The record is a 118-nucleotide RNA sequence from endosymbiont of unidentified scaly snail isolate Monju, which matches "ALIL pseudoknot" in Rfam.
Nucleotides: 118
Base pairs, nucleotide, nucleotide: 017031018030019029020028078118079117080116081115082114089113090112092110093109095107096106097105098104
Number, partner (000 for none) and nucleotide at each position: 001000g002000g003000c004000u005000u006000u007000u008000u009000u010000u011000g012000c013000c014000c015000a016000g017031g018030c019029g020028g021000a022000g023000c024000u025000c026000g027000a028020c029019c030018g031017c032000a033000a034000a035000c036000u037000g038000a039000a040000g041000a042000g043000a044000u045000g046000a047000u048000c049000g050000c051000g052000u053000a054000c055000a056000u057000c058000g059000a060000c061000g062000a063000u064000c065000a066000c067000a068000g069000g070000g071000a072000u073000c074000g075000u076000u077000a078118c079117g080116g081115g082114g083000u084000c085000g086000a087000g088000c089113c090112g091000a092110u093109c094000u095107g096106c097105a098104g099000c100000g101000g102000u103000g104098c105097u106096g107095c108000c109093g110092a111000u112090c113089g114082c115081c116080c117079c118078g
Notes
The source organism's lineage runs through Bacteria, Pseudomonadati, Pseudomonadota and Gammaproteobacteria. It is annotated as a cis-regulatory element. A search with the family's covariance model found it, with a score of 108 bits. Its family is annotated with positive regulation of translational frameshifting in the Gene Ontology.